[Rfam]
RNA: T-box leader
Organism: Clostridium tyrobutyricum
RNA sequence: UCAAAAUCUAAGAAGAGGAUUAGUAAAAUCAUAUCUUUUUUAGAGAGGAAACGGAAGGUGAAAGUUUCCAAAGAAUGUUUUGAACCUACCUUGGAGUUCUGUAAUAUAAAAUUACAGCGGCAGAGCUGUCGUUAUGACUUGAGAGAAUAUAUUUUAAAGCUUGGAAUAUAUUAAUCAGGGUGGUAUCGCCGAUAUAACCUCGGUCCCUAUU
Numbered sequence: 001u002c003a004a005a006a007u008c009u010a011a012g013a014a015g016a017g018g019a020u021u022a023g024u025a026a027a028a029u030c031a032u033a034u035c036u037u038u039u040u041u042a043g044a045g046a047g048g049a050a051a052c053g054g055a056a057g058g059u060g061a062a063a064g065u066u067u068c069c070a071a072a073g074a075a076u077g078u079u080u081u082g083a084a085c086c087u088a089c090c091u092u093g094g095a096g097u098u099c100u101g102u103a104a105u106a107u108a109a110a111a112u113u114a115c116a117g118c119g120g121c122a123g124a125g126c127u128g129u130c131g132u133u134a135u136g137a138c139u140u141g142a143g144a145g146a147a148u149a150u151a152u153u154u155u156a157a158a159g160c161u162u163g164g165a166a167u168a169u170a171u172u173a174a175u176c177a178g179g180g181u182g183g184u185a186u187c188g189c190c191g192a193u194a195u196a197a198c199c200u201c202g203g204u205c206c207c208u209a210u211u
Stems, first nucleotide, its partner, number of pairs: 008096001015092004026081003030077002036072003047069006100116006118131003146172011177208004188204005
Dot-bracket structure: .......(......((((.......(((.((....(((........((((((...........)))))))))...)).))).......))))...)...((((((.....)))))).(((........)))..............(((((((((((.....)))))))))))....((((.......(((((.......)))))))))...